[Rfam]
RNA: Streptococcus RNA 266
Organism: Streptococcus pyogenes
RNA sequence: AAUGAGAGUUUGGUUGCUUUUCAUUAUAAAUCUUAUGGGACUUUUUUGAUAUUCAAAAAGCUCUAUAAUCUCUACAGUGGAUUUACCCAUUCAAGAGAUUAUAGAGCU
Numbered sequence: 001a002a003u004g005a006g007a008g009u010u011u012g013g014u015u016g017c018u019u020u021u022c023a024u025u026a027u028a029a030a031u032c033u034u035a036u037g038g039g040a041c042u043u044u045u046u047u048g049a050u051a052u053u054c055a056a057a058a059a060g061c062u063c064u065a066u067a068a069u070c071u072c073u074a075c076a077g078u079g080g081a082u083u084u085a086c087c088c089a090u091u092c093a094a095g096a097g098a099u100u101a102u103a104g105a106g107c108u
Stems, first nucleotide, its partner, number of pairs: 001025006008017002028043002031040002059108005065102008076091005